RNA: 7SK RNA
Organism: Cricetulus griseus
RNA sequence: GGAUGUGAGGGUGAUCUGGCUGUGACAUCUGUCACCCCAUUGAUGGCCAGGCUUGAUUCAGCUGAUCUGGCUGGCUAGGCAGGUGUCUUCUUCCUCCUUCACCACUCCAUAUGUGUCCCUCCCAAAACUGAGCACUCGGUCAAAGAGGACGAUGUUCCCUGAAUAGAGGAGAAUGGGUCUUCUGUCAAGGGUAUACGAGUAGCUGCACUCCCCUGCUAGAACCUCCAAACAAAGAGAAACUGAAUUGCUGGAAGAACAUCAGACUAGGUUUGAAGAGAUCUAAAUUCUCAUCCUCACUAUGUACCAGAUGUGUGAUGAUGGAAAGU
Numbered sequence: 001g002g003a004u005g006u007g008a009g010g011g012u013g014a015u016c017u018g019g020c021u022g023u024g025a026c027a028u029c030u031g032u033c034a035c036c037c038c039a040u041u042g043a044u045g046g047c048c049a050g051g052c053u054u055g056a057u058u059c060a061g062c063u064g065a066u067c068u069g070g071c072u073g074g075c076u077a078g079g080c081a082g083g084u085g086u087c088u089u090c091u092u093c094c095u096c097c098u099u100c101a102c103c104a105c106u107c108c109a110u111a112u113g114u115g116u117c118c119c120u121c122c123c124a125a126a127a128c129u130g131a132g133c134a135c136u137c138g139g140u141c142a143a144a145g146a147g148g149a150c151g152a153u154g155u156u157c158c159c160u161g162a163a164u165a166g167a168g169g170a171g172a173a174u175g176g177g178u179c180u181u182c183u184g185u186c187a188a189g190g191g192u193a194u195a196c197g198a199g200u201a202g203c204u205g206c207a208c209u210c211c212c213c214u215g216c217u218a219g220a221a222c223c224u225c226c227a228a229a230c231a232a233a234g235a236g237a238a239a240c241u242g243a244a245u246u247g248c249u250g251g252a253a254g255a256a257c258a259u260c261a262g263a264c265u266a267g268g269u270u271u272g273a274a275g276a277g278a279u280c281u282a283a284a285u286u287c288u289c290a291u292c293c294u295c296a297c298u299a300u301g302u303a304c305c306a307g308a309u310g311u312g313u314g315a316u317g318a319u320g321g322a323a324a325g326u
Stems, first nucleotide, its partner, number of pairs: 001108003005102007013093002018090002024087010035074002037070003042067003046062002116172002118169004122139002125136001140162003147158003202260001204258001208254002212251002215248002224244001226242001284326003288321005293314001295312003